[Rfam]
RNA: Cyano-1 RNA
RNA sequence: UUGUGUGUGAGGAGCAAGUUAAAAAUAAAAAGCGCCUGGGGUGGAAACACGGCAACACUCCCAGGCGCUUUUUAAU
Numbered sequence: 001u002u003g004u005g006u007g008u009g010a011g012g013a014g015c016a017a018g019u020u021a022a023a024a025a026u027a028a029a030a031a032g033c034g035c036c037u038g039g040g041g042u043g044g045a046a047a048c049a050c051g052g053c054a055a056c057a058c059u060c061c062c063a064g065g066c067g068c069u070u071u072u073u074a075a076u
Base pairs, nucleotide, nucleotide: 029071030070031069032068033067036064037063038062039061040060041058042057043056